[Rfam]
RNA: Selenocysteine transfer RNA
Organism: Polymorphospora rubra
RNA sequence: UGGAGACGCCAGCCGAUGGGCGCCGGCCGCCGCCUUGAAAGCGGUUGGAGGCUUCGCCGCCUCGUGGGCGUUCGACUCGCCCCGUCUCCG
Numbered sequence: 001u002g003g004a005g006a007c008g009c010c011a012g013c014c015g016a017u018g019g020g021c022g023c024c025g026g027c028c029g030c031c032g033c034c035u036u037g038a039a040a041g042c043g044g045u046u047g048g049a050g051g052c053u054u055c056g057c058c059g060c061c062u063c064g065u066g067g068g069c070g071u072u073c074g075a076c077u078c079g080c081c082c083c084g085u086c087u088c089c090g
Base pairs, nucleotide, nucleotide: 001090002089003088004087005086006085007084008083012027013026014025015024017022029045030044031043032042033041048063049062050061051060052059067081068080069079070078